[Rfam]
RNA sequence: UGAACCCAGUACUCUUGGGUCUUGCAACAGAACCCAGUGAUCUUGGGUCCUAUAUUAGGAUCUAAUUUUCUUGGGUCCUUUGUCAAGACCAAGGCUAUUGGGUCUU
Numbered sequence: 001u002g003a004a005c006c007c008a009g010u011a012c013u014c015u016u017g018g019g020u021c022u023u024g025c026a027a028c029a030g031a032a033c034c035c036a037g038u039g040a041u042c043u044u045g046g047g048u049c050c051u052a053u054a055u056u057a058g059g060a061u062c063u064a065a066u067u068u069u070c071u072u073g074g075g076u077c078c079u080u081u082g083u084c085a086a087g088a089c090c091a092a093g094g095c096u097a098u099u100g101g102g103u104c105u106u
Stems, first nucleotide, its partner, number of pairs: 002105001004103006013094005019089006029079002032076006043065008
The family of this 106-nucleotide RNA sequence from Populus trichocarpa is "MIR6450 microRNA precursor family".
The family's consensus secondary structure was predicted with RNAalifold.
NCBI's taxonomy places the organism under Eukaryota, Embryophyta, Pentapetalae, fabids, Populus.
The match comes from Rfam's covariance-model search (78 bits).